[Rfam]
RNA sequence: AAGCGUGCCCAGAUACCGCAUUGUUGCGCGGAGACUUCAGCUCAAUGCCCACCAAGUGCACGCAUAUCAAAGUGUUCUCCGAUGAGCCUGCAUAGUUGAGUUCCAAUGCAGGAACAGAUACGGAACAUAUAAAU
Numbered sequence: 001a002a003g004c005g006u007g008c009c010c011a012g013a014u015a016c017c018g019c020a021u022u023g024u025u026g027c028g029c030g031g032a033g034a035c036u037u038c039a040g041c042u043c044a045a046u047g048c049c050c051a052c053c054a055a056g057u058g059c060a061c062g063c064a065u066a067u068c069a070a071a072g073u074g075u076u077c078u079c080c081g082a083u084g085a086g087c088c089u090g091c092a093u094a095g096u097u098g099a100g101u102u103c104c105a106a107u108g109c110a111g112g113a114a115c116a117g118a119u120a121c122g123g124a125a126c127a128u129a130u131a132a133a134u
Stems, first nucleotide, its partner, number of pairs: 004062005010056001018049001022047005030036002072128007083116002087112005093105001095103001
Drosophila small cajal body-specific RNA PsiU2-35.45: a 134-nucleotide RNA from Drosophila grimshawi. Gene Ontology terms of the family: nucleolus, RNA processing and Cajal body. Rfam classes the family as a small Cajal body RNA.